[Rfam]
RNA sequence: CGAAUCCUUCGGGGUAGGGUGAAAUUCCCAACCGGCGGUGAUGAAGAAUAGAAAACUUCUAAGCCCGUGACCCGGCACUUUUUAGUGACGGUGGAUACUGGUGCAAAACCAGAGCCGACAGUAUAGUCUGGAUGGGAGAAGGAAUUA
Numbered sequence: 001c002g003a004a005u006c007c008u009u010c011g012g013g014g015u016a017g018g019g020u021g022a023a024a025u026u027c028c029c030a031a032c033c034g035g036c037g038g039u040g041a042u043g044a045a046g047a048a049u050a051g052a053a054a055a056c057u058u059c060u061a062a063g064c065c066c067g068u069g070a071c072c073c074g075g076c077a078c079u080u081u082u083u084a085g086u087g088a089c090g091g092u093g094g095a096u097a098c099u100g101g102u103g104c105a106a107a108a109c110c111a112g113a114g115c116c117g118a119c120a121g122u123a124u125a126g127u128c129u130g131g132a133u134g135g136g137a138g139a140a141g142g143a144a145u146u147a
Base pairs, nucleotide, nucleotide: 003145005143006142007141008140009139010138017029018028019027031127032126033117034116035068036067037066038065063115064114072091073090096113098112099111100110101109119130120129121128
RNA: FMN riboswitch aptamer (RFN element)